This 80-nucleotide RNA sequence from Caproicibacter fermentans belongs to the Rfam family "pemK RNA". The family's RNA type in Rfam is cis-regulatory element. The match comes from Rfam's covariance-model search (51 bits). NCBI's taxonomy places the organism under Bacteria, Bacillota, Eubacteriales, Acutalibacteraceae, Caproicibacter.

RNA sequence: AUUAUGAUACUCCUGUCCAGCCACAGACAUCGCAAUGGGGGCAGCUCGGAGAGAAUCUCGGAGGGGUAUAGAGCCCGUGU
Numbered sequence: 001a002u003u004a005u006g007a008u009a010c011u012c013c014u015g016u017c018c019a020g021c022c023a024c025a026g027a028c029a030u031c032g033c034a035a036u037g038g039g040g041g042c043a044g045c046u047c048g049g050a051g052a053g054a055a056u057c058u059c060g061g062a063g064g065g066g067u068a069u070a071g072a073g074c075c076c077g078u079g080u
Stems, first nucleotide, its partner, number of pairs: 012077001013044006045063003049059003064076003